[Rfam]
The record is a 93-nucleotide RNA sequence from an Alicyclobacillaceae bacterium, which matches "Selenocysteine transfer RNA" in Rfam. Lineage of the source: Bacteria > Bacillati > Bacillota > Bacilli > Alicyclobacillaceae. Its Rfam clan is "tRNA clan".
RNA sequence: GGGAGCGGAUGGGGUACUGGUGUCCUUCCCGGUCUUCAAAACCGAGUGCGUCCGGUGGUGCCGGAUGGGUGGGUUCGAUUCCCACGCGCUCCC
Numbered sequence: 001g002g003g004a005g006c007g008g009a010u011g012g013g014g015u016a017c018u019g020g021u022g023u024c025c026u027u028c029c030c031g032g033u034c035u036u037c038a039a040a041a042c043c044g045a046g047u048g049c050g051u052c053c054g055g056u057g058g059u060g061c062c063g064g065a066u067g068g069g070u071g072g073g074u075u076c077g078a079u080u081c082c083c084a085c086g087c088g089c090u091c092c093c
Base pairs, nucleotide, nucleotide: 001093002092003091004090005089006088007087012027013026014025016023017022028046030044031043032042033041049067050066051065052064053063070084071083072082073081
Rfam 15.1 lists 4,211 matches to the family in 3,344 species. The family's consensus secondary structure is taken from published work.